RNA sequence: CGCCCGGACGGAUCCCGUGGGGGGAAUCCGAACCGGGACAAGGGAGGCGCCCCGCACUCCGGA
Numbered sequence: 001c002g003c004c005c006g007g008a009c010g011g012a013u014c015c016c017g018u019g020g021g022g023g024g025a026a027u028c029c030g031a032a033c034c035g036g037g038a039c040a041a042g043g044g045a046g047g048c049g050c051c052c053c054g055c056a057c058u059c060c061g062g063a
Base pairs, nucleotide, nucleotide: 001061002060003037004036005035006034007033009030010029011028012027013026014024015023016022042052043051044050
RNA: Streptomyces RNA 2736